[Rfam]
RNA sequence: AAGCAAGAUUCAGGUUAGAAUAUACCUGUUAAAUGCUAUAUAAAUGGCAUUUCCCCUGCUUACAAUAAAGUUAUUUCUUAACUAUACCUGUCCACUAUACUCUUGUAGCAGCCAGGGAUGCUUGGUCUCAUACAU
Numbered sequence: 001a002a003g004c005a006a007g008a009u010u011c012a013g014g015u016u017a018g019a020a021u022a023u024a025c026c027u028g029u030u031a032a033a034u035g036c037u038a039u040a041u042a043a044a045u046g047g048c049a050u051u052u053c054c055c056c057u058g059c060u061u062a063c064a065a066u067a068a069a070g071u072u073a074u075u076u077c078u079u080a081a082c083u084a085u086a087c088c089u090g091u092c093c094a095c096u097a098u099a100c101u102c103u104u105g106u107a108g109c110a111g112c113c114a115g116g117g118a119u120g121c122u123u124g125g126u127c128u129c130a131u132a133c134a135u
Base pairs, nucleotide, nucleotide: 003059004058005057007055019045020041021040022039023038024037026035087116088115089114090113092111095108
Dot-bracket structure: ..(((.(...........((((((.(........).)))))...).........).)))...........................((((.(..(............)..).))))...................

Small nucleolar RNA SNORA63: a 135-nucleotide sequence from Prolemur simus. Pairs were carried over by alignment from the consensus structure, which was predicted with PFOLD. E3 belongs to the H/ACA class of snoRNAs and is involved in the processing of eukaryotic pre-rRNA and has regions of complementarity to 18S rRNA. E3 is encoded in introns in the gene for protein synthesis initiation factor 4AII. A search with the family's covariance model found it, with a score of 92 bits. By type it is an H/ACA-box small nucleolar RNA.